Source information
The family of this 100-nucleotide RNA sequence from Roseburia sp. AM16-25 is "SAM riboswitch aptamer (S box leader)". The family's consensus secondary structure is taken from published work. NCBI's taxonomy places the organism under Bacteria, Bacillati, Clostridia, Lachnospirales, Roseburia. It scores 70 bits against the family's covariance model.
[Rfam]
RNA sequence: CUCUUAUUCAGAGUGGCGGAGAUACAUAGGAUCGAUGAAACCACGGCAACCCCGGAAGAUGGAAGGUGCCUACCUGAGCGAGUAACUCGAACAAUAAGGG
Numbered sequence: 001c002u003c004u005u006a007u008u009c010a011g012a013g014u015g016g017c018g019g020a021g022a023u024a025c026a027u028a029g030g031a032u033c034g035a036u037g038a039a040a041c042c043a044c045g046g047c048a049a050c051c052c053c054g055g056a057a058g059a060u061g062g063a064a065g066g067u068g069c070c071u072a073c074c075u076g077a078g079c080g081a082g083u084a085a086c087u088c089g090a091a092c093a094a095u096a097a098g099g100g
Base pairs, nucleotide, nucleotide: 001100002099003098004097005096006095007094008093013044014043015042016041021033022032023031027078030075045070046069047068048067050066051065052062053061054060079089080088081087082086